This 155-nucleotide sequence from Pedobacter sp. Leaf216 belongs to the Rfam family "Group II catalytic intron D1-D4-7". On this family, see Bonen and Vogel, Trends Genet 2001: "The ins and outs of group II introns". Rfam 15.1 lists 1,296 matches to the family in 705 species. Rfam links the family to the GO term Group II intron splicing.
RNA sequence: CCUAUUGUGUCGUCAAUAGUAGCCUAAGGGCACAUGCAUUACAAGUAAUUGUUUUGUGUGAAGCUGCCCUGACAAAGUAACCCUUUCACCGGCAGGUGAAGAAGUUGAAGCCGUGAGGUGGAAACAACGACGGUAAGCAUUAUGCUGUCUGGGGG
Numbered sequence: 001c002c003u004a005u006u007g008u009g010u011c012g013u014c015a016a017u018a019g020u021a022g023c024c025u026a027a028g029g030g031c032a033c034a035u036g037c038a039u040u041a042c043a044a045g046u047a048a049u050u051g052u053u054u055u056g057u058g059u060g061a062a063g064c065u066g067c068c069c070u071g072a073c074a075a076a077g078u079a080a081c082c083c084u085u086u087c088a089c090c091g092g093c094a095g096g097u098g099a100a101g102a103a104g105u106u107g108a109a110g111c112c113g114u115g116a117g118g119u120g121g122a123a124a125c126a127a128c129g130a131c132g133g134u135a136a137g138c139a140u141u142a143u144g145c146u147g148u149c150u151g152g153g154g155g
Stems, first nucleotide, its partner, number of pairs: 002019006028069005033060006041052004085100006101125001111118002130148006